RNA sequence: GCCGGGUGUUGUGGCGUGCAUCUGUAAUCCAGCUACUUGGAGGCUAAACUCUCGAACGGCUUGAGUUCGAGACCACUUCCGUGCAGUUGUCUAUGUCGAUCAGGCGUCCACACUAAGCUCAGUGUCAACAUGGUUAUCAUGCAGGAAUGCGAGAUACACCAGGUUCGAUAAUGAAGAACGUACCGGCCCAGGGCGGAAACGCAGCAGGCAAAAGUUCUCGCAGUGAGCAGUAGUGGGAUAGCGCUUGUGAAUAGGUGGUGUACGGUAGCCCGCACAAGACAGUCGAACGAAGCUUUUU
Numbered sequence: 001g002c003c004g005g006g007u008g009u010u011g012u013g014g015c016g017u018g019c020a021u022c023u024g025u026a027a028u029c030c031a032g033c034u035a036c037u038u039g040g041a042g043g044c045u046a047a048a049c050u051c052u053c054g055a056a057c058g059g060c061u062u063g064a065g066u067u068c069g070a071g072a073c074c075a076c077u078u079c080c081g082u083g084c085a086g087u088u089g090u091c092u093a094u095g096u097c098g099a100u101c102a103g104g105c106g107u108c109c110a111c112a113c114u115a116a117g118c119u120c121a122g123u124g125u126c127a128a129c130a131u132g133g134u135u136a137u138c139a140u141g142c143a144g145g146a147a148u149g150c151g152a153g154a155u156a157c158a159c160c161a162g163g164u165u166c167g168a169u170a171a172u173g174a175a176g177a178a179c180g181u182a183c184c185g186g187c188c189c190a191g192g193g194c195g196g197a198a199a200c201g202c203a204g205c206a207g208g209c210a211a212a213a214g215u216u217c218u219c220g221c222a223g224u225g226a227g228c229a230g231u232a233g234u235g236g237g238a239u240a241g242c243g244c245u246u247g248u249g250a251a252u253a254g255g256u257g258g259u260g261u262a263c264g265g266u267a268g269c270c271c272g273c274a275c276a277a278g279a280c281a282g283u284c285g286a287a288c289g290a291a292g293c294u295u296u297u298u
Stems, first nucleotide, its partner, number of pairs: 001044003004023006028041003046296003050292001052290003057285005065275002068272002071269001076268002079265007087257001090255005096249001101247007108237002111235005117228005123222003127165003131161004135156004140151004168172001175218005186209003193202003